Shown here is a 68-nucleotide sequence from Clostridium aciditolerans, a member of the family "RAGATH-18 RNA". About the family: Actinobacteria, Firmicutes, Fusobacteria, Thermotogae (1 example). It is annotated as a small RNA. The family's consensus secondary structure is taken from published work.
[Rfam]
RNA sequence: CCCUGGGAGAACUAUACCAAACUAGAGUAGAUUAUUUAAAAUUGAAAUAGGGUUCUGCGAAUAGGGAA
Numbered sequence: 001c002c003c004u005g006g007g008a009g010a011a012c013u014a015u016a017c018c019a020a021a022c023u024a025g026a027g028u029a030g031a032u033u034a035u036u037u038a039a040a041a042u043u044g045a046a047a048u049a050g051g052g053u054u055c056u057g058c059g060a061a062u063a064g065g066g067a068a
Base pairs, nucleotide, nucleotide: 001066002065003064004063005062009055010054011053012052013051022050023049024048030043031042032041035040